[Rfam]
The family of this 59-nucleotide RNA from Zhihengliuella halotolerans is "msiK RNA".
It scores 66 bits against the family's covariance model.
The organism belongs to Zhihengliuella, within Bacteria.
By type it is a cis-regulatory element.
Nucleotides: 059
Stems, first nucleotide, its partner, number of pairs: 009051003013047003027044006
Number, partner (000 for none) and nucleotide at each position: 001000u002000u003000g004000u005000g006000a007000c008000a009051c010050c011049u012000a013047u014046c015045a016000c017000a018000a019000c020000g021000g022000a023000u024000c025000g026000u027044c028043g029042g030041g031040c032039a033000c034000g035000u036000a037000c038000c039032u040031g041030c042029c043028c044027g045015u046014g047013a048000a049011g050010g051009g052000a053000a054000c055000a056000c057000a058000a059000c